[Rfam]
RNA: DUF2800 RNA
RNA sequence: CCGUUUCAAUGUUCAUCUGCUGACGAGUAGAUGCCCAGAGCGGCGAAACGGACACAAGUAAAUAUCAGUCAACCCACUGGGACGGUUGGCCAGUUAAGAAGUGAGGAUUCAUUCUUAUGGCCAAUUAUCAUGGGAUGUCCUGCGUGGAUUCUCA
Dot-bracket structure: (((((.(..(((((((((..........)))))[[[[[))))..).)))))...............((((.((...]]]]].....(((((........(((((....))))).....)))))....................)).))))....